Background: The record is a 141-nucleotide sequence from Cloeon dipterum, which matches "U4 spliceosomal RNA" in Rfam. Rfam classes the family as a spliceosomal small nuclear RNA. NCBI's taxonomy places the organism under Eukaryota, Allotriocarida, Hexapoda, Pterygota, Cloeon. The family's consensus secondary structure is taken from published work. U4 small nuclear RNA (U4 snRNA) is a component of the major U2-dependent spliceosome.

[Rfam]
RNA sequence: AGCUUUGCGCAGUGGCAUUAUCGUACCCAAUGAGGUUUUACCGAGGGGCGAUUAUUGCUAGUUGAAAACUAAUCCCAAUACCCCGUCUAGUCCUCAUGAAAUACUGAGGGCUAAGACAAUUUUUGAAUGACCCUACCGGGU
Number, nucleotide and partner (000 for none) at each position: 001a000002g000003c000004u000005u000006u000007g000008c000009g000010c000011a000012g000013u000014g000015g000016c000017a000018u000019u000020a052021u051022c050023g049024u048025a000026c047027c046028c045029a000030a000031u000032g000033a000034g042035g041036u040037u000038u000039u000040a036041c035042c034043g000044a000045g028046g027047g026048g024049c023050g022051a021052u020053u000054a000055u000056u000057g000058c000059u000060a000061g000062u000063u000064g000065a000066a000067a000068a000069c000070u000071a000072a000073u000074c000075c000076c000077a000078a000079u000080a000081c000082c000083c000084c000085g117086u116087c115088u113089a112090g111091u110092c109093c108094u107095c106096a105097u000098g000099a000100a000101a000102u000103a000104c000105u096106g095107a094108g093109g092110g091111c090112u089113a088114a000115g087116a086117c085118a000119a000120u000121u000122u000123u000124u000125g000126a000127a000128u000129g000130a141131c140132c139133c138134u000135a000136c000137c000138g133139g132140g131141u130